[Rfam]
RNA sequence: UCGGGGCUUCGCAGGCCCCCGGUGCCUCGUGCAAAGACGGUGUCCCGUCCAAGUUCUGC
Numbered sequence: 001u002c003g004g005g006g007c008u009u010c011g012c013a014g015g016c017c018c019c020c021g022g023u024g025c026c027u028c029g030u031g032c033a034a035a036g037a038c039g040g041u042g043u044c045c046c047g048u049c050c051a052a053g054u055u056c057u058g059c
Base pairs, nucleotide, nucleotide: 001022002021003020004019005018006017011059012058013057014056015055036049037048038047039046040045
The family of this 59-nucleotide RNA sequence from Usitatibacter palustris is "chrB-b RNA".